[Rfam]
Nucleotides: 078
Base pairs, nucleotide, nucleotide: 002077003076004075005074006073011068012067013066016064017063020061021060022059024058025057026056027055028054029053030052
Number, partner (000 for none) and nucleotide at each position: 001000a002077g003076u004075u005074u006073u007000c008000u009000g010000a011068g012067u013066c014000c015000u016064u017063g018000c019000c020061g021060a022059g023000a024058u025057u026056u027055c028054g029053u030052c031000a032000g033000a034000c035000a036000c037000u038000a039000g040000a041000c042000c043000a044000u045000c046000a047000a048000g049000a050000a051000u052030g053029a054028u055027g056026a057025g058024a059022c060021u061020c062000c063017c064016a065000a066013g067012a068011u069000a070000a071000u072000u073006g074005a075004a076003a077002u078000u